[Rfam]
About this RNA:
The family of this 223-nucleotide RNA from Streptomyces sp. TverLS-915 is "Streptomyces RNA 1601". Rfam describes the family as follows. Identified by deep sequencing of transcriptome at the end of exponential growth phase. Appears longer on northern blot than sequencing transcript. Streptomyces specific. It scores 142 bits against the family's covariance model. Rfam classes the family as a small RNA. The organism belongs to Streptomyces, within Bacteria.
RNA sequence: GACGACCGGCCGGAGUGUGUCAGUGGUGCCCGCGAGGGAGCCCGAGACUCCGGCCACAAGUGGAGGCUCCGCACUCCCACCUGAUCGCCCUCACGGGCGGCGGGUCACCGGUCAGACGGCACCGCACCCGAGGCGGUGGACGUCCGAAGUCGCGCCCCGCGAACACGCGGCGGUGCUCCGGUCAGUACAGGAGCCCCGCUCGUGAUCGUCCGGGGCAUUUUUC
Numbered sequence: 001g002a003c004g005a006c007c008g009g010c011c012g013g014a015g016u017g018u019g020u021c022a023g024u025g026g027u028g029c030c031c032g033c034g035a036g037g038g039a040g041c042c043c044g045a046g047a048c049u050c051c052g053g054c055c056a057c058a059a060g061u062g063g064a065g066g067c068u069c070c071g072c073a074c075u076c077c078c079a080c081c082u083g084a085u086c087g088c089c090c091u092c093a094c095g096g097g098c099g100g101c102g103g104g105u106c107a108c109c110g111g112u113c114a115g116a117c118g119g120c121a122c123c124g125c126a127c128c129c130g131a132g133g134c135g136g137u138g139g140a141c142g143u144c145c146g147a148a149g150u151c152g153c154g155c156c157c158c159g160c161g162a163a164c165a166c167g168c169g170g171c172g173g174u175g176c177u178c179c180g181g182u183c184a185g186u187a188c189a190g191g192a193g194c195c196c197c198g199c200u201c202g203u204g205a206u207c208g209u210c211c212g213g214g215g216c217a218u219u220u221u222u223c
Stems, first nucleotide, its partner, number of pairs: 004113006012051005052106004057083002060080004064075002085100006115144004121137005154216006160208003166204003169200005175194005
Dot-bracket structure: ...((((((..(((((..............................)))))((((.((.((((((........)).)))).)).((((((....))))))..)))).)))))).((((..(((((.......)))))...)))).........(((((((((...((((((((.(((((..........))))).))))).))).)))..)))))).......